[Rfam]
RNA sequence: CACCGGCGAUUGAUCACGCCGCAGUCUGACAGAAGGCUCGUCCCCCGCCUCUUCAGACCGGGCAAAGGCUCAUCCCCCUCUCCGGGCCUUUGUCCUCCCAUCCGACGCCACGGCCGUUCCCCUCCCGGCCGUGGCGUUUUUUU
Number, nucleotide and partner (000 for none) at each position: 001c000002a000003c000004c000005g000006g000007c000008g000009a000010u000011u000012g000013a000014u000015c000016a000017c000018g000019c000020c000021g000022c000023a000024g000025u057026c056027u055028g054029a053030c000031a000032g000033a000034a000035g049036g048037c047038u000039c000040g000041u000042c000043c000044c000045c000046c000047g037048c036049c035050u000051c000052u000053u029054c028055a027056g026057a025058c000059c000060g095061g094062g093063c092064a091065a090066a089067g088068g087069c086070u000071c000072a000073u000074c000075c000076c000077c000078c000079u000080c000081u000082c000083c000084g000085g000086g069087c068088c067089u066090u065091u064092g063093u062094c061095c060096u000097c000098c000099c000100a000101u000102c000103c000104g000105a137106c136107g135108c134109c133110a132111c131112g130113g129114c128115c127116g126117u000118u000119c000120c000121c000122c000123u000124c000125c000126c116127g115128g114129c113130c112131g111132u110133g109134g108135c107136g106137u105138u000139u000140u000141u000142u000143u000
Shown here is a 143-nucleotide RNA sequence from Rhizobium sp. NFR07, a member of the family "Alphaproteobacterial sRNA ar7". It is annotated as a small RNA. Lineage of the source: Bacteria > Alphaproteobacteria > Hyphomicrobiales > Rhizobiaceae > Rhizobium.